The family of this 110-nucleotide sequence from Chloroflexia bacterium SDU3-3 is "Glycine riboswitch aptamer". Taxonomically the source falls in Chloroflexia (Bacteria, Bacillati, Chloroflexota).
RNA sequence: AUGACGAACGCGGGAGAGCACCUGCCCCAGCGGGGCGGGUCGCCGAAGGCGCAAGGGCGGGCGGCCAACCCCACCCCGAAACGCUCAGGCCCACGAACUGCGCUCCGACG
Numbered sequence: 001a002u003g004a005c006g007a008a009c010g011c012g013g014g015a016g017a018g019c020a021c022c023u024g025c026c027c028c029a030g031c032g033g034g035g036c037g038g039g040u041c042g043c044c045g046a047a048g049g050c051g052c053a054a055g056g057g058c059g060g061g062c063g064g065c066c067a068a069c070c071c072c073a074c075c076c077c078g079a080a081a082c083g084c085u086c087a088g089g090c091c092c093a094c095g096a097a098c099u100g101c102g103c104u105c106c107g108a109c110g
Stems, first nucleotide, its partner, number of pairs: 006105002009102005020040008042090003045086002049084003055077002
Dot-bracket structure: .....((.(((((......((((((((.....)))))))).(((((..(((...((...................))....))))).))).......))))).)).....